A member of the RNA family "Gammaproteobacterial sRNA STnc100" from Klebsiella virus vB_KpnM-20, 214 nucleotides long. The base pairs follow the family's consensus structure, which was predicted with CMfinder. By type it is a small RNA. The organism belongs to Taipeivirus, within Viruses.
RNA sequence: ACAAGUUGCUUCUGUAUAGAUGCUGCUAUGUUUGGUGAAUUCUGCUAAGCGCAAGAGGGAACGGAAUAGUCUCAUCCCCCUGAGUAUGAUGUUACAUCACACCCGGCCUUAUUUUCCGUGUUAAGGUCAUCGGGAGGCACCCGACACCAAACAGCCUGGUCUAGCGAAUAGACAAGUGCCUGACUUUCACUCAGGUGCGAGUUGCGACAUUGGU
Numbered sequence: 001a002c003a004a005g006u007u008g009c010u011u012c013u014g015u016a017u018a019g020a021u022g023c024u025g026c027u028a029u030g031u032u033u034g035g036u037g038a039a040u041u042c043u044g045c046u047a048a049g050c051g052c053a054a055g056a057g058g059g060a061a062c063g064g065a066a067u068a069g070u071c072u073c074a075u076c077c078c079c080c081u082g083a084g085u086a087u088g089a090u091g092u093u094a095c096a097u098c099a100c101a102c103c104c105g106g107c108c109u110u111a112u113u114u115u116c117c118g119u120g121u122u123a124a125g126g127u128c129a130u131c132g133g134g135a136g137g138c139a140c141c142c143g144a145c146a147c148c149a150a151a152c153a154g155c156c157u158g159g160u161c162u163a164g165c166g167a168a169u170a171g172a173c174a175a176g177u178g179c180c181u182g183a184c185u186u187u188c189a190c191u192c193a194g195g196u197g198c199g200a201g202u203u204g205c206g207a208c209a210u211u212g213g214u
Base pairs, nucleotide, nucleotide: 014161030152031151032150033149034148035147036146037145042057043056046053091104105128106127107126108125110123111122130144131143132142133141134140172214173213175211181204182203183202184201185200186199188197189196